[Rfam]
RNA sequence: UAACGCAAUGAUGCGUUUUAUGCGGAACACCAUCCGCGUAGUAGGCUAGAACCUACAUCGGACUUCUAUAAAGGAGAAAACAACAUG
Numbered sequence: 001u002a003a004c005g006c007a008a009u010g011a012u013g014c015g016u017u018u019u020a021u022g023c024g025g026a027a028c029a030c031c032a033u034c035c036g037c038g039u040a041g042u043a044g045g046c047u048a049g050a051a052c053c054u055a056c057a058u059c060g061g062a063c064u065u066c067u068a069u070a071a072a073g074g075a076g077a078a079a080a081c082a083a084c085a086u087g
Base pairs, nucleotide, nucleotide: 002017003016004015005014006013019040020039021038022037023036024035025034041056042055043054044053